[Rfam]
RNA sequence: GACGAAUCUAUUGCCUGCCGAGCCUGGAGCUUACCGGUCCCAGGGGAGGGCAGCGAAAAGAGGAAUCU
Numbered sequence: 001g002a003c004g005a006a007u008c009u010a011u012u013g014c015c016u017g018c019c020g021a022g023c024c025u026g027g028a029g030c031u032u033a034c035c036g037g038u039c040c041c042a043g044g045g046g047a048g049g050g051c052a053g054c055g056a057a058a059a060g061a062g063g064a065a066u067c068u
Base pairs, nucleotide, nucleotide: 011056012055013054015053016052017051018050019049023044024043025042026041027040029038030037031036
Rfam assigns this 68-nucleotide sequence from Paracidovorax avenae to the family "ilvH RNA". It is annotated as a cis-regulatory element. The match comes from Rfam's covariance-model search (90 bits). NCBI's taxonomy places the organism under Bacteria, Betaproteobacteria, Burkholderiales, Paracidovorax, Paracidovorax avenae. The base pairs follow the family's consensus structure, which is taken from published work.